[Rfam]
RNA sequence: GGCGAUAAACGAUGUCGUGGAAUAGAUGCAGCGGACCCGGGGGCAGUACCCGGCGACUCCACCAACACCCCCCGGUUGUCGCGGGAUGAAUGGGGUCGAACCAGGAUCGACGUGUAUUCAAAGACGAUGUUUUCGCCCGGCCUGAAUGCGCCGUAAAACCGUUCAUUCACACAAAUGCCAACGACAACGAGGCAUUCGCAAUCGCAGCGUAA
Number, nucleotide and partner (000 for none) at each position: 001g137002g136003c135004g134005a133006u000007a000008a000009a000010c000011g000012a000013u000014g000015u127016c126017g125018u124019g000020g000021a000022a000023u000024a000025g000026a000027u116028g115029c114030a000031g113032c112033g111034g000035a000036c000037c053038c052039g051040g050041g049042g000043g000044c000045a000046g000047u000048a000049c041050c040051c039052g038053g037054c098055g097056a096057c095058u094059c093060c092061a000062c000063c000064a000065a000066c000067a000068c000069c000070c000071c000072c000073c000074g000075g000076u000077u000078g000079u000080c000081g000082c000083g000084g000085g000086a000087u000088g000089a000090a000091u000092g060093g059094g058095g057096u056097c055098g054099a000100a000101c000102c000103a000104g000105g000106a000107u000108c000109g000110a000111c033112g032113u031114g029115u028116a027117u000118u000119c000120a000121a000122a000123g000124a018125c017126g016127a015128u000129g000130u000131u000132u000133u005134c004135g003136c002137c001138c153139g152140g151141c150142c000143u000144g000145a000146a000147u000148g000149c000150g141151c140152c139153g138154u000155a000156a000157a000158a000159c000160c000161g000162u000163u000164c000165a000166u000167u000168c000169a000170c000171a000172c000173a000174a000175a000176u000177g000178c000179c000180a000181a000182c000183g000184a000185c000186a000187a000188c000189g000190a000191g000192g000193c000194a000195u000196u000197c000198g000199c000200a000201a000202u000203c000204g000205c000206a000207g000208c000209g000210u000211a000212a000
Shown here is a 212-nucleotide sequence from alpha proteobacterium AAP81b, a member of the family "permuted transfer-messenger RNA". Rfam describes the family as follows. Bacterial tmRNA, also known as 10Sa RNA or SsrA, is named for its dual tRNA and mRNA-like properties. The source organism's lineage runs through Bacteria, Pseudomonadati, Pseudomonadota and Alphaproteobacteria. A reference for the family is Zwieb et al. (2003), "tmRDB (tmRNA database)", Nucleic Acids Res. Rfam classes the family as a non-coding RNA gene. The family's consensus secondary structure is taken from published work.